Background:
This 128-nucleotide RNA sequence from Erinaceus europaeus belongs to the Rfam family "Small nucleolar RNA SNORA40". Pairs were carried over by alignment from the consensus structure, which was predicted with RNAalifold. The source organism's lineage runs through Eukaryota, Chordata, Amniota, Laurasiatheria and Erinaceus. The match comes from Rfam's covariance-model search (81 bits). From the family's description: The snoRNA ACA 40 belongs to the H/ACA family of snoRNAs and guides the pseudouridylation of 28S rRNA subunit at position U4565. NB This family has a high threshold value to exclude a large number of closely related sequences that do not appear to have conserved H and ACA boxes, and may be pseudogenes. By type it is an H/ACA-box small nucleolar RNA. Gene Ontology terms of the family: nucleolus and RNA processing.
RNA sequence: AGCACCUUUGCUUGUUUUUGUGUAAGAAGUAGGCAAAAGCUAUGAGACAGGUGCAAAAAACAAACCCUCUUUUGCAUUCCUGAGCUCAUUGUUCAGUACCAGUUUUAAUACCUUUGAGAAGGAACUUG
Numbered sequence: 001a002g003c004a005c006c007u008u009u010g011c012u013u014g015u016u017u018u019u020g021u022g023u024a025a026g027a028a029g030u031a032g033g034c035a036a037a038a039g040c041u042a043u044g045a046g047a048c049a050g051g052u053g054c055a056a057a058a059a060a061c062a063a064a065c066c067c068u069c070u071u072u073u074g075c076a077u078u079c080c081u082g083a084g085c086u087c088a089u090u091g092u093u094c095a096g097u098a099c100c101a102g103u104u105u106u107a108a109u110a111c112c113u114u115u116g117a118g119a120a121g122g123a124a125c126u127u128g
Base pairs, nucleotide, nucleotide: 002054003053004052005051006050007049009047014040015039016038017037018036019035020034021033067122068121070119071118072117073116074115082105083104084103085102086101089098